RNA sequence: AAUUUGACUCAGAAGAAGAAAAAAGAAAUAGAUCUAUUCUAUACUCGAUAAGUAUCAAUAUGCAAUAGGG
Numbered sequence: 001a002a003u004u005u006g007a008c009u010c011a012g013a014a015g016a017a018g019a020a021a022a023a024a025g026a027a028a029u030a031g032a033u034c035u036a037u038u039c040u041a042u043a044c045u046c047g048a049u050a051a052g053u054a055u056c057a058a059u060a061u062g063c064a065a066u067a068g069g070g
Stems, first nucleotide, its partner, number of pairs: 003023002008018002010015001044069002052061003
The family of this 70-nucleotide RNA sequence from Durio zibethinus is "Plastid-clpP 5UTR RNA". On this family, see Richter et al., Plant Commun 2023: "Retrograde signaling in plants: A critical review focusing on the GUN pathway and beyond". It is annotated as a cis-regulatory element. The source organism's lineage runs through Eukaryota, Embryophyta, rosids, malvids and Durio. A search with the family's covariance model found it, with a score of 58 bits. Plastid clpP is a non-coding RNA (ncRNA) recognised in plastids.